[Rfam]
RNA: Small nucleolar RNA SNORD113/SNORD114 family
Organism: Equus caballus
RNA sequence: UGGACCAAUGCUGACGACUGGUGGCAUAGGAGUCACGGAUGAUGAAUACUAUAUGUUUUGAACUCUGAGGUCCAA
Number, nucleotide and partner (000 for none) at each position: 001u000002g073003g072004a071005c070006c069007a000008a000009u000010g000011c000012u000013g000014a000015c000016g000017a000018c000019u000020g000021g000022u000023g000024g000025c000026a000027u000028a000029g000030g000031a000032g000033u000034c000035a000036c000037g000038g000039a000040u000041g000042a000043u000044g000045a000046a000047u000048a000049c000050u000051a000052u000053a000054u000055g000056u000057u000058u000059u000060g000061a000062a000063c000064u000065c000066u000067g000068a000069g006070g005071u004072c003073c002074a000075a000